Mammalian CPEB3 ribozyme: an 80-nucleotide RNA from Crocodylus porosus. The source organism's lineage runs through Eukaryota, Opisthokonta, Sauropsida, Sauria and Crocodylus. For this family Rfam cites "A genomewide search for ribozymes reveals an HDV-like sequence in the human CPEB3 gene" (Salehi-Ashtiani et al., Science, 2006).

RNA sequence: AGAGGUCACAAGUUUCAGGCCACACCAAAAGCACACACAGUGUGGCCCUGUCAGAUUCCGAUGAAUCUGUGAAUUCUGCU
Number, nucleotide and partner (000 for none) at each position: 001a000002g000003a000004g000005g000006u000007c000008a000009c000010a000011a000012g000013u000014u000015u000016c000017a000018g047019g046020c045021c044022a000023c000024a080025c000026c078027a077028a000029a075030a074031g043032c042033a041034c000035a000036c000037a000038c000039a000040g000041u033042g032043u031044g021045g020046c019047c018048c000049u000050g000051u000052c069053a068054g067055a066056u065057u064058c063059c000060g000061a000062u000063g058064a057065a056066u055067c054068u053069g052070u000071g000072a000073a000074u030075u029076c000077u027078g026079c000080u024